[Rfam]
RNA sequence: CCACAUUCCCCGGGGAGCCAUGAGGCUGAGAGGGGCGGUGCGAAUCCGUCCGACCCGUAGAACCUGAUCCGGCCCCUUGAUGGGCUUACCGGCGUAGGGAGGGAGCGGCCUUUUUCU
Numbered sequence: 001c002c003a004c005a006u007u008c009c010c011c012g013g014g015g016a017g018c019c020a021u022g023a024g025g026c027u028g029a030g031a032g033g034g035g036c037g038g039u040g041c042g043a044a045u046c047c048g049u050c051c052g053a054c055c056c057g058u059a060g061a062a063c064c065u066g067a068u069c070c071g072g073c074c075c076c077u078u079g080a081u082g083g084g085c086u087u088a089c090c091g092g093c094g095u096a097g098g099g100a101g102g103g104a105g106c107g108g109c110c111u112u113u114u115u116c117u
Base pairs, nucleotide, nucleotide: 006105007104008103009102010101011057012056013055014054017026018025019024033051034050035049036048037047063098064097065096066095069092070091071090072089

A member of the RNA family "TPP riboswitch aptamer (THI element)" from Sphingomonas sp. NFR15, 117 nucleotides long. About the family: Vitamin B(1) in its active form thiamin pyrophosphate (TPP) is an essential coenzyme that is synthesised by coupling of pyrimidine and thiazole moieties in bacteria. The base pairs follow the family's consensus structure, which is taken from published work.